[Rfam]
RNA sequence: UGAUACAAGUGUCAAAAGUAUAAAAAUUCGAUGCAAUUGCUUGCAAGAGAAUCUAUUAUCUUUUGGCAAAAAAUAUGAGUAAGUAGCCAUUUUUUAUAAAAAAAUGAGCGAAUUACGAAUAUUUUUGCAAGGAUUGCGAGAAGCAAAAGCCGCAGCAAUCCUGUAUCA
Number, nucleotide and partner (000 for none) at each position: 001u168002g167003a166004u165005a164006c163007a162008a000009g000010u000011g067012u066013c065014a064015a000016a000017a061018g060019u000020a000021u000022a056023a000024a054025a000026a052027u051028u050029c049030g000031a000032u046033g044034c043035a042036a041037u000038u000039g000040c000041u036042u035043g034044c033045a000046a032047g000048a000049g029050a028051a027052u026053c000054u024055a000056u022057u000058a000059u000060c018061u017062u000063u000064u014065g013066g012067c011068a000069a126070a125071a124072a123073a122074u121075a120076u119077g000078a000079g116080u115081a114082a113083g000084u000085a000086g109087c108088c106089a105090u104091u103092u102093u101094u100095u099096a000097u000098a000099a095100a094101a093102a092103a091104a090105u089106g088107a000108g087109c086110g000111a000112a000113u082114u081115a080116c079117g000118a000119a076120u075121a074122u073123u072124u071125u070126u069127g000128c000129a000130a000131g161132g160133a159134u158135u157136g156137c155138g000139a000140g000141a000142a000143g150144c149145a000146a000147a000148a000149g144150c143151c000152g000153c000154a000155g137156c136157a135158a134159u133160c132161c131162u007163g006164u005165a004166u003167c002168a001
Notes
The family of this 168-nucleotide RNA sequence from Johnsonella ignava is "Clostridiales-1 RNA". It scores 78 bits against the family's covariance model. Taxonomically the source falls in Johnsonella ignava (Bacteria, Bacillota, Clostridia, Lachnospiraceae). The family's RNA type in Rfam is small RNA.